[Rfam]
RNA sequence: UGAAAUCUGAUGACGGGAAAGAGUAGUUCGUCCGGACAUUCCCAGAGAACCGGCGGCUGGUGCGAGCCGGUAAUGAAUGGCGAUUGAAAAUCAUCCCCGAAGAGAAGUGCUGAAGCAAGAUUAAGCACUGACGAUUUUUCCACGUUAUAGGAAACGCGUAUGUUGGUACGUUGUAGAGAGCCUGGUUGCAGCAAUGCACCGGGAAUCAGGGUGGUAUCGCGGAAUAGUACUCCGUCCCUCAG
Numbered sequence: 001u002g003a004a005a006u007c008u009g010a011u012g013a014c015g016g017g018a019a020a021g022a023g024u025a026g027u028u029c030g031u032c033c034g035g036a037c038a039u040u041c042c043c044a045g046a047g048a049a050c051c052g053g054c055g056g057c058u059g060g061u062g063c064g065a066g067c068c069g070g071u072a073a074u075g076a077a078u079g080g081c082g083a084u085u086g087a088a089a090a091u092c093a094u095c096c097c098c099g100a101a102g103a104g105a106a107g108u109g110c111u112g113a114a115g116c117a118a119g120a121u122u123a124a125g126c127a128c129u130g131a132c133g134a135u136u137u138u139u140c141c142a143c144g145u146u147a148u149a150g151g152a153a154a155c156g157c158g159u160a161u162g163u164u165g166g167u168a169c170g171u172u173g174u175a176g177a178g179a180g181c182c183u184g185g186u187u188g189c190a191g192c193a194a195u196g197c198a199c200c201g202g203g204a205a206u207c208a209g210g211g212u213g214g215u216a217u218c219g220c221g222g223a224a225u226a227g228u229a230c231u232c233c234g235u236c237c238c239u240c241a242g
Stems, first nucleotide, its partner, number of pairs: 007102002015097004026085001028083004038074003049071006106129006132144002181203006208239004219235005
Background
The family of this 242-nucleotide sequence from Megasphaera elsdenii is "T-box leader". The source organism's lineage runs through Bacteria, Negativicutes, Veillonellaceae, Megasphaera and Megasphaera elsdenii. It is annotated as a cis-regulatory leader.